[Rfam]
RNA: Mason-Pfizer monkey virus packaging signal
RNA sequence: UGGCGCCCAACGGUGUGGCUUCGGAUACGGGGGAAUUCGCGAGGGAAGAGGCGUGUAAGUGUUCGGCUGAAGGAAAAAAAAAAGUGAAAGUCAGUUUGACAAAGAUCGCUGCAGGAGCCUGCCGCGCCGUUCUUAAAGGUACAGUAGCGCCUAAUUAUGGGACAAGAAUUAAGUAAGCAUAAAGUUUUUGUUAAGCAAUUAAAAGAAGCUUUAAAGACACGGGGAGUAAAGGUUAAGAGUAAUGAUCUUUUUAAGUUUUUUGACCUUAUUAAGGACACCUGUCCAU
Numbered sequence: 001u002g003g004c005g006c007c008c009a010a011c012g013g014u015g016u017g018g019c020u021u022c023g024g025a026u027a028c029g030g031g032g033g034a035a036u037u038c039g040c041g042a043g044g045g046a047a048g049a050g051g052c053g054u055g056u057a058a059g060u061g062u063u064c065g066g067c068u069g070a071a072g073g074a075a076a077a078a079a080a081a082a083a084g085u086g087a088a089a090g091u092c093a094g095u096u097u098g099a100c101a102a103a104g105a106u107c108g109c110u111g112c113a114g115g116a117g118c119c120u121g122c123c124g125c126g127c128c129g130u131u132c133u134u135a136a137a138g139g140u141a142c143a144g145u146a147g148c149g150c151c152u153a154a155u156u157a158u159g160g161g162a163c164a165a166g167a168a169u170u171a172a173g174u175a176a177g178c179a180u181a182a183a184g185u186u187u188u189u190g191u192u193a194a195g196c197a198a199u200u201a202a203a204a205g206a207a208g209c210u211u212u213a214a215a216g217a218c219a220c221g222g223g224g225a226g227u228a229a230a231g232g233u234u235a236a237g238a239g240u241a242a243u244g245a246u247c248u249u250u251u252u253a254a255g256u257u258u259u260u261u262g263a264c265c266u267u268a269u270u271a272a273g274g275a276c277a278c279c280u281g282u283c284c285a286u
Stems, first nucleotide, its partner, number of pairs: 006033003013028003038050001040048001091139002095136002105131001107129001110126003114122001145165001147163001150161004170213003173209002220262008230248006271286001273284004